[Rfam]
RNA sequence: CCAAAGGCUCUUUUAAGAGCCACCAAAUGUUCAAGUAAAAGGGCUG
Numbered sequence: 001c002c003a004a005a006g007g008c009u010c011u012u013u014u015a016a017g018a019g020c021c022a023c024c025a026a027a028u029g030u031u032c033a034a035g036u037a038a039a040a041g042g043g044c045u046g
Base pairs, nucleotide, nucleotide: 006021007020008019009018010017011016

This 46-nucleotide RNA from Brachypodius melanocephalos belongs to the Rfam family "Histone 3' UTR stem-loop". A search with the family's covariance model found it, with a score of 40 bits. The base pairs follow the family's consensus structure, which is taken from published work. Rfam's curators write: The mRNAs of metazoan histone genes lack a poly-A tail. 3' end processing occurs at a site between a highly conserved stem-loop (modelled by this family) and a purine rich region around 20 nts downstream (the histone downstream element, or HDE). The stem-loop is bound by a 31 kDa stem-loop binding protein (SLBP - also termed the histone hairpin binding protein, or HBP). Together with U7 snRNA binding of the HDE, SLBP binding nucleate s the formation of the processing complex. Rfam links the family to the GO term mRNA 3'-end processing by stem-loop binding and cleavage. The family's RNA type in Rfam is cis-regulatory element.